RNA sequence: GCCGGAACUGAUUGUCCAAACGCAAUUCUUGUGCUUGUUCAAAAGCAGGAGUUGUGGAUGGACAUCAUGCUCCUGU
Numbered sequence: 001g002c003c004g005g006a007a008c009u010g011a012u013u014g015u016c017c018a019a020a021c022g023c024a025a026u027u028c029u030u031g032u033g034c035u036u037g038u039u040c041a042a043a044a045g046c047a048g049g050a051g052u053u054g055u056g057g058a059u060g061g062a063c064a065u066c067a068u069g070c071u072c073c074u075g076u
Stems, first nucleotide, its partner, number of pairs: 002075001004073003009067004014063005021056011
RNA: mir-219 microRNA precursor family
Organism: Electrophorus electricus